[Rfam]
RNA: Small nucleolar RNA Z266
RNA sequence: UUUUGGCAGUAGUGAUGAAUCAAUUAGAUGCGUGAAGUAAUCUUAUGAACUUAAUUUUGAGGCAUACAUUCUGUCUGAACUGCCAUAA
Number, nucleotide and partner (000 for none) at each position: 001u088002u087003u000004u085005g084006g083007c082008a081009g080010u079011a000012g000013u000014g000015a000016u000017g000018a000019a000020u000021c000022a000023a000024u000025u000026a000027g000028a000029u000030g000031c000032g000033u000034g000035a000036a000037g000038u000039a000040a000041u000042c000043u000044u000045a000046u000047g000048a000049a000050c000051u000052u000053a000054a000055u000056u000057u000058u000059g000060a000061g000062g000063c000064a000065u000066a000067c000068a000069u000070u000071c000072u000073g000074u000075c000076u000077g000078a000079a010080c009081u008082g007083c006084c005085a004086u000087a002088a001